[Rfam]
RNA sequence: GAAGUGGGCUGGACGAUCGCUGCCAACGUGAGUUGGGAGAGGAAGGUCCGGACUCCGCAGGGUAGGGUGACGGCUAACGGCCGUACGCAGCAAGUGGGUUUCGGCCCACCCAAGGCGAGGAACAGGGCCACAGAGACGAGUAAUCAGCCGGCCAAGGGCAUGGCUGAGGAUGUGAAACGCGGUAACCUCCACCCGGAGCAACACCAAGUAGGCGCGCGAGAGGCUUGUCCUUGAAAAGGUGUCCCGCCUGAUGCGCGCGGGUAGGUGGCUUGAGCCCAUUAGCAAUGAUGGGCCUAGAUGGAUGAUCGUCAUAGGGCCGGCUUUUUGGUCGGCCCCGUAACAGAAUCCGGCCUACAGGCCCACUUCCGUU
Numbered sequence: 001g002a003a004g005u006g007g008g009c010u011g012g013a014c015g016a017u018c019g020c021u022g023c024c025a026a027c028g029u030g031a032g033u034u035g036g037g038a039g040a041g042g043a044a045g046g047u048c049c050g051g052a053c054u055c056c057g058c059a060g061g062g063u064a065g066g067g068u069g070a071c072g073g074c075u076a077a078c079g080g081c082c083g084u085a086c087g088c089a090g091c092a093a094g095u096g097g098g099u100u101u102c103g104g105c106c107c108a109c110c111c112a113a114g115g116c117g118a119g120g121a122a123c124a125g126g127g128c129c130a131c132a133g134a135g136a137c138g139a140g141u142a143a144u145c146a147g148c149c150g151g152c153c154a155a156g157g158g159c160a161u162g163g164c165u166g167a168g169g170a171u172g173u174g175a176a177a178c179g180c181g182g183u184a185a186c187c188u189c190c191a192c193c194c195g196g197a198g199c200a201a202c203a204c205c206a207a208g209u210a211g212g213c214g215c216g217c218g219a220g221a222g223g224c225u226u227g228u229c230c231u232u233g234a235a236a237a238g239g240u241g242u243c244c245c246g247c248c249u250g251a252u253g254c255g256c257g258c259g260g261g262u263a264g265g266u267g268g269c270u271u272g273a274g275c276c277c278a279u280u281a282g283c284a285a286u287g288a289u290g291g292g293c294c295u296a297g298a299u300g301g302a303u304g305a306u307c308g309u310c311a312u313a314g315g316g317c318c319g320g321c322u323u324u325u326u327g328g329u330c331g332g333c334c335c336c337g338u339a340a341c342a343g344a345a346u347c348c349g350g351c352c353u354a355c356a357g358g359c360c361c362a363c364u365u366c367c368g369u370u
Stems, first nucleotide, its partner, number of pairs: 001366010011355001012310007020039002023036005044353003048350005053198004060245003065194005070084005086117003120189002125187002127183003142171001144167007202267004212258006237249004274293008

Description:
Bacterial RNase P class A: a 370-nucleotide RNA sequence from Burkholderiales bacterium LSUCC0115. Clan: RNaseP clan. Its family is annotated with dimeric ribonuclease P complex, ribonuclease P activity and tRNA processing in the Gene Ontology. The family's RNA type in Rfam is ribozyme. Lineage of the source: Bacteria > Pseudomonadati > Pseudomonadota > Betaproteobacteria > Burkholderiales.